RNA sequence: AGGUGUGUGAGGAGUAAGUUGAAAACAAAAAGCGCUUGGGGUGGAAACACGGUCACACUCCCAGGCGCUUUUUGCU
Numbered sequence: 001a002g003g004u005g006u007g008u009g010a011g012g013a014g015u016a017a018g019u020u021g022a023a024a025a026c027a028a029a030a031a032g033c034g035c036u037u038g039g040g041g042u043g044g045a046a047a048c049a050c051g052g053u054c055a056c057a058c059u060c061c062c063a064g065g066c067g068c069u070u071u072u073u074g075c076u
Base pairs, nucleotide, nucleotide: 026074027073028072029071030070033067034066038062039061040060041058042057043056

About this RNA
The record is a 76-nucleotide RNA sequence from Calothrix sp. PCC 6303, which matches "Cyano-1 RNA" in Rfam. The organism belongs to Calothrix, within Bacteria. The family's consensus secondary structure is taken from published work. It is annotated as a small RNA.